Shown here is a 158-nucleotide RNA sequence from Oryza brachyantha, a member of the family "MIR827 microRNA precursor family". The family has 5 seed sequences and 57 matches in Rfam 15.1. Gene Ontology terms of the family: miRNA-mediated post-transcriptional gene silencing and RISC complex. Lineage of the source: Eukaryota > Euphyllophyta > Spermatophyta > Oryzinae > Oryza.

Nucleotides: 158
Stems, first nucleotide, its partner, number of pairs: 005153004010149004015144010026133004031128008
Number, partner (000 for none) and nucleotide at each position: 001000a002000c003000c004000u005153g006152u007151u008150u009000u010149g011148u012147u013146g014000c015144u016143g017142g018141u019140c020139a021138u022137c023136u024135a025000u026133c027132u028131a029130c030000c031128c032127g033126u034125g035124c036123u037122u038121g039000c040000c041000u042000u043000g044000c045000c046000u047000u048000g049000c050000c051000u052000g053000c054000u055000c056000a057000g058000c059000u060000c061000c062000u063000c064000u065000c066000c067000u068000g069000g070000a071000g072000a073000g074000u075000c076000a077000c078000u079000g080000g081000c082000a083000g084000u085000g086000c087000a088000g089000a090000g091000u092000g093000a094000a095000g096000a097000u098000g099000c100000a101000g102000u103000g104000c105000g106000g107000c108000c109000g110000c111000c112000g113000u114000c115000u116000u117000g118000g119000c120000u121038u122037g123036g124035g125034c126033a127032c128031g129000c130029g131028u132027g133026g134000u135024u136023a137022g138021a139020u140019g141018a142017c143016c144015a145000u146013c147012a148011g149010c150008a151007a152006a153005c154000a155000a156000g157000u158000u